[Rfam]
RNA sequence: CAUCCCAAUGAAGUUUGUCGUUGCAAUUAAAAAAAGUAGUGGGCUGACCUUCAUUGAAGACAAACCAUUUCUGAGGGAUU
Numbered sequence: 001c002a003u004c005c006c007a008a009u010g011a012a013g014u015u016u017g018u019c020g021u022u023g024c025a026a027u028u029a030a031a032a033a034a035a036g037u038a039g040u041g042g043g044c045u046g047a048c049c050u051u052c053a054u055u056g057a058a059g060a061c062a063a064a065c066c067a068u069u070u071c072u073g074a075g076g077g078a079u080u
Base pairs, nucleotide, nucleotide: 002079003078004077005076006075
The record is an 80-nucleotide RNA from Ziziphus jujuba, which matches "Small nucleolar RNA R21" in Rfam. On this family, see Barneche et al., J Mol Biol 2001: "Identification of 66 box C/D snoRNAs in Arabidopsis thaliana: extensive gene duplications generated multiple isoforms predicting new ribosomal RNA 2'-O-methylation sites". The family's consensus secondary structure was predicted with PFOLD. The source organism's lineage runs through Eukaryota, Embryophyta, Mesangiospermae, rosids and Ziziphus jujuba. A search with the family's covariance model found it, with a score of 56 bits.